Notes
The record is a 34-nucleotide RNA, which matches "L31-Firmicutes ribosomal protein leader" in Rfam. The sequence is in the family's curated seed alignment. The family's RNA type in Rfam is cis-regulatory leader.
RNA sequence: CUAUGGUUUGAAAAAACAACCAUGGCAAAAGGAG
Numbered sequence: 001c002u003a004u005g006g007u008u009u010g011a012a013a014a015a016a017c018a019a020c021c022a023u024g025g026c027a028a029a030a031g032g033a034g
Stems, first nucleotide, its partner, number of pairs: 001025008